[Rfam]
RNA sequence: GUUGAGAGGGCGACGAAUACAACACCCUUCGGGGAAAUAAGUCCGCGGCGAUUUUCCUUGUGCCGUUUCGAACCUCCCAACACCCAAUU
Number, nucleotide and partner (000 for none) at each position: 001g081002u080003u079004g078005a000006g076007a075008g074009g073010g000011c000012g043013a042014c041015g000016a038017a000018u000019a000020c000021a000022a000023c000024a000025c034026c033027c032028u000029u000030c000031g000032g027033g026034g025035a000036a000037a000038u016039a000040a000041g014042u013043c012044c000045g066046c065047g064048g063049c062050g000051a000052u000053u000054u000055u000056c000057c000058u000059u000060g000061u000062g049063c048064c047065g046066u045067u000068u000069c000070g000071a000072a000073c009074c008075u007076c006077c000078c004079a003080a002081c001082a000083c000084c000085c000086a000087a000088u000089u000
The record is an 89-nucleotide sequence, which matches "sRNA-Xcc1" in Rfam.
The family's RNA type in Rfam is small RNA.